Source information:
Shown here is a 111-nucleotide RNA from Pseudomonas fluorescens, a member of the family "Pseudomon-groES RNA". By type it is a cis-regulatory element. The family's consensus secondary structure is taken from published work.

[Rfam]
RNA sequence: GUAACGGUCACCGCAAGGUUUCUGGUGAAGAUCACCAGACAGACUUCCGCGGUUCGCUUGACGAGCCGCAACCGGCAACGCCGGAAUUUAACCUGCCGGGAUUACACCGGC
Numbered sequence: 001g002u003a004a005c006g007g008u009c010a011c012c013g014c015a016a017g018g019u020u021u022c023u024g025g026u027g028a029a030g031a032u033c034a035c036c037a038g039a040c041a042g043a044c045u046u047c048c049g050c051g052g053u054u055c056g057c058u059u060g061a062c063g064a065g066c067c068g069c070a071a072c073c074g075g076c077a078a079c080g081c082c083g084g085a086a087u088u089u090a091a092c093c094u095g096c097c098g099g100g101a102u103u104a105c106a107c108c109g110g111c
Stems, first nucleotide, its partner, number of pairs: 010019003021039006049069008072084004095111005